RNA sequence: AGUGUAGAGGAGGGUGAGAAUGUCGUGUUCUCUCAGGCAAAUCACUCUUUUCUCGCUGC
Numbered sequence: 001a002g003u004g005u006a007g008a009g010g011a012g013g014g015u016g017a018g019a020a021u022g023u024c025g026u027g028u029u030c031u032c033u034c035a036g037g038c039a040a041a042u043c044a045c046u047c048u049u050u051u052c053u054c055g056c057u058g059c
Stems, first nucleotide, its partner, number of pairs: 002056003006053006013047002018042001022038003

Background:
Shown here is a 59-nucleotide RNA from Sarcophilus harrisii, a member of the family "mir-7398 microRNA precursor family". The base pairs follow the family's consensus structure, which was predicted with RNAalifold. The match comes from Rfam's covariance-model search (46 bits). Its family is annotated with RISC complex and miRNA-mediated post-transcriptional gene silencing in the Gene Ontology. The family has 23 seed sequences and 132 matches in Rfam 15.1. The organism belongs to Sarcophilus, within Eukaryota.